[Rfam]
Rfam assigns this 74-nucleotide RNA from Menidia menidia to the family "Small nucleolar RNA SNORD99". It scores 63 bits against the family's covariance model. Taxonomically the source falls in Menidia (Eukaryota, Eumetazoa, Vertebrata, Eurypterygia). The family is grouped with related families in Rfam's "SNORD58 clan". The base pairs follow the family's consensus structure, which was predicted with RNAalifold. A reference for the family is Galardi et al. (2002), "Purified box C/D snoRNPs are able to reproduce site-specific 2'-O-methylation of target RNA in vitro", Mol Cell Biol. It is annotated as a C/D-box small nucleolar RNA.
RNA sequence: UCUGAUCCAUGAUGAUUUUUUGAAAGUAUAACGACUGUUGGAUGAAGCUUGCGGAUAUGGGACUGAGAUCAAAC
Numbered sequence: 001u002c003u004g005a006u007c008c009a010u011g012a013u014g015a016u017u018u019u020u021u022g023a024a025a026g027u028a029u030a031a032c033g034a035c036u037g038u039u040g041g042a043u044g045a046a047g048c049u050u051g052c053g054g055a056u057a058u059g060g061g062a063c064u065g066a067g068a069u070c071a072a073a074c
Stems, first nucleotide, its partner, number of pairs: 001073001003071003